RNA: Eukaryotic large subunit ribosomal RNA, nucleotides 1900 to 2391
RNA sequence: UGGAACAAUGUAGAUAAGGGAAGUCGGCAAAAUAGAUCCGUAACUUCGGGAAAAGGAUUGGCUCUAAGGGUUGGGUGCGUCGGGCCGUUGACGGAAGGGAGCCGGACCCGGCGGGACUGCGUGGGGCAACCUGCGCGGACCUGCUGGGACUGGCGACCGGAAGGCUUCGGCAGCCCUCGGGCGUCCGGCGUGCGUUUAACAACCGACUUAGAACUGGUACGGACAAGGGGAAUCUGACUGUCUAAUUAAAACAUAGCAUUGCGAUGGCCAGAAAGUGGUGUUGACGCAAUGUGAUUUCUGCCCAGUGCUCUGAAUGUCAAAGUGAAGAAAUUCAACCAAGCGCGGGUAAACGGCGGGAGUAACUAUGACUCUCUUAAGGUAGCCAAAUGCCUCGUCAUCUAAUUAGUGACGCGCAUGAAUGGAUUAACGAGAUUCCCACUGUCCCUAUCUACUAUCUAGCGAAACCACAGCCAAGGGAACGGGCUUGGCAGA
Numbered sequence: 001u002g003g004a005a006c007a008a009u010g011u012a013g014a015u016a017a018g019g020g021a022a023g024u025c026g027g028c029a030a031a032a033u034a035g036a037u038c039c040g041u042a043a044c045u046u047c048g049g050g051a052a053a054a055g056g057a058u059u060g061g062c063u064c065u066a067a068g069g070g071u072u073g074g075g076u077g078c079g080u081c082g083g084g085c086c087g088u089u090g091a092c093g094g095a096a097g098g099g100a101g102c103c104g105g106a107c108c109c110g111g112c113g114g115g116a117c118u119g120c121g122u123g124g125g126g127c128a129a130c131c132u133g134c135g136c137g138g139a140c141c142u143g144c145u146g147g148g149a150c151u152g153g154c155g156a157c158c159g160g161a162a163g164g165c166u167u168c169g170g171c172a173g174c175c176c177u178c179g180g181g182c183g184u185c186c187g188g189c190g191u192g193c194g195u196u197u198a199a200c201a202a203c204c205g206a207c208u209u210a211g212a213a214c215u216g217g218u219a220c221g222g223a224c225a226a227g228g229g230g231a232a233u234c235u236g237a238c239u240g241u242c243u244a245a246u247u248a249a250a251a252c253a254u255a256g257c258a259u260u261g262c263g264a265u266g267g268c269c270a271g272a273a274a275g276u277g278g279u280g281u282u283g284a285c286g287c288a289a290u291g292u293g294a295u296u297u298c299u300g301c302c303c304a305g306u307g308c309u310c311u312g313a314a315u316g317u318c319a320a321a322g323u324g325a326a327g328a329a330a331u332u333c334a335a336c337c338a339a340g341c342g343c344g345g346g347u348a349a350a351c352g353g354c355g356g357g358a359g360u361a362a363c364u365a366u367g368a369c370u371c372u373c374u375u376a377a378g379g380u381a382g383c384c385a386a387a388u389g390c391c392u393c394g395u396c397a398u399c400u401a402a403u404u405a406g407u408g409a410c411g412c413g414c415a416u417g418a419a420u421g422g423a424u425u426a427a428c429g430a431g432a433u434u435c436c437c438a439c440u441g442u443c444c445c446u447a448u449c450u451a452c453u454a455u456c457u458a459g460c461g462a463a464a465c466c467a468c469a470g471c472c473a474a475g476g477g478a479a480c481g482g483g484c485u486u487g488g489c490a491g492a
Base pairs, nucleotide, nucleotide: 001458002457003456004455010452011451012450013449014448015447016446018444019443020442035059036058037057038056039055044049060215061214063212064211065210066209067208068207069204070203071202072201073200075193076192077191078190079189080188081187082186083185084171085170086169090165097158098157101154102153103152104151105150107148108147109146110145111144112143113142114141115140117138118137119136120135121134122133123132124131125130216220228437229436230435231434232433233432234431235429236428239253240252241251256292257291258290259289260288261287262286263285267279268278269277270276296423297422298421300354301353302352305351306350307347308346309345310344312343315342316341317340323334324333325332326331355373356372357371358370359369360368374378394410395409396408397407398406471488472487473486474485475484